[Rfam]
RNA sequence: ACGUUCUCAUUGGGGAGCUAGCCUAAGAAGAUACUUGUUAGCCAACAAACAACAUCUUAGGUUGACGCUGAGAUUGCAUACGCAGAACCCACAGAACCUGAACCAGCUAAUACUGGCGUAGGAAUUGAGAAGUCGCUGAUC
Numbered sequence: 001a002c003g004u005u006c007u008c009a010u011u012g013g014g015g016a017g018c019u020a021g022c023c024u025a026a027g028a029a030g031a032u033a034c035u036u037g038u039u040a041g042c043c044a045a046c047a048a049a050c051a052a053c054a055u056c057u058u059a060g061g062u063u064g065a066c067g068c069u070g071a072g073a074u075u076g077c078a079u080a081c082g083c084a085g086a087a088c089c090c091a092c093a094g095a096a097c098c099u100g101a102a103c104c105a106g107c108u109a110a111u112a113c114u115g116g117c118g119u120a121g122g123a124a125u126u127g128a129g130a131a132g133u134c135g136c137u138g139a140u141c
Base pairs, nucleotide, nucleotide: 006129007128008127009126011091012090013089014088017068018067075084076083077082097122098121099120100119103116104115105114106113
The record is a 141-nucleotide RNA from Photobacterium jeanii, which matches "TPP riboswitch aptamer (THI element)" in Rfam. The source organism's lineage runs through Bacteria, Pseudomonadati, Pseudomonadota, Gammaproteobacteria and Photobacterium. The family's consensus secondary structure is taken from published work. The family has 115 seed sequences and 16,130 matches in Rfam 15.1. The match comes from Rfam's covariance-model search (62 bits).